[Rfam]
Nucleotides: 231
Stems, first nucleotide, its partner, number of pairs: 005088013020044004026038003048055002058070004091229002094226001098219006107195011118183001120152004127144006156180003161176004197207002
Number, partner (000 for none) and nucleotide at each position: 001000g002000a003000g004000u005088u006087a007086c008085g009084g010083u011082a012081u013080g014079g015078a016077g017076c018000a019000a020044g021043g022042u023041u024000a025000a026038g027037c028036a029000c030000c031000u032000a033000u034000g035000g036028u037027g038026c039000g040000a041023a042022g043021c044020c045000g046000u047000a048055g049054g050000g051000a052000a053000a054049c055048c056000g057000a058070g059069u060068c061067u062000u063000a064000a065000u066000a067061g068060g069059g070058c071000g072000u073000c074000u075000a076017g077016u078015u079014u080013c081012a082011u083010g084009c085008c086007g087006u088005a089000g090000a091229c092228c093000c094226g095000a096000a097000a098219c099218c100217g101216g102215g103214c104000g105000a106000c107195c108194u109193a110192c111191c112190c113189a114188u115187g116186g117185u118183c119000a120152g121151g122150a123149u124000g125000a126000a127144g128143c129142g130141g131140a132139a133000g134000u135000a136000a137000a138000a139132u140131u141130u142129c143128g144127u145000g146000g147000a148000g149123g150122u151121c152120c153000g154000a155000a156180c157179c158178g159000a160000u161176u162175g163174a164173c165000g166000u167000u168000g169000a170000a171000a172000a173164g174163u175162c176161a177000c178158c179157g180156g181000a182000u183118g184000a185117a186116c187115u188114g189113u190112g191111g192110g193109u194108a195107g196000c197207g198206g199000u200000g201000a202000a203000a204000u205000u206198c207197c208000a209000a210000u211000c212000g213000a214103g215102c216101c217100c218099g219098g220000a221000g222000a223000u224000a225000g226094c227000u228092g229091g230000u231000u
Bacterial large subunit ribosomal RNA: a 231-nucleotide part of an RNA from Alkaliphilus sp. B6464. Lineage of the source: Bacteria > Bacillati > Clostridia > Natronincolaceae > Alkaliphilus.